[Rfam]
RNA sequence: CUAAUGCAACAUAUUUGCAACCUUUUUUGACUGAUUGUAUAUGAGUUUUUGAACCAAAAAAGGAGCAAUAGCUUCCCUCUUGUUUUAUCAAGAGGGUGUUAUUGCUCCUUU
Number, nucleotide and partner (000 for none) at each position: 001c017002u000003a015004a014005u013006g000007c000008a000009a000010c000011a000012u000013a005014u004015u003016u000017g001018c000019a000020a000021c000022c000023u000024u000025u000026u000027u000028u000029g000030a000031c000032u000033g000034a000035u000036u000037g000038u000039a000040u000041a000042u000043g000044a000045g000046u000047u000048u000049u000050u000051g000052a000053a000054c000055c000056a000057a000058a000059a111060a110061a109062g108063g107064a106065g105066c104067a103068a102069u101070a100071g099072c000073u000074u096075c095076c000077c094078u093079c092080u091081u090082g000083u000084u000085u000086u000087a000088u000089c000090a081091a080092g079093a078094g077095g075096g074097u000098g000099u071100u070101a069102u068103u067104g066105c065106u064107c063108c062109u061110u060111u059

A member of the RNA family "Plastid-psbA-1 3UTR RNA" from Mikania micrantha, 111 nucleotides long. The organism belongs to Mikania, within Eukaryota. It is annotated as a cis-regulatory element. Its Rfam clan is "Plastid-psbA 3UTR RNA clan".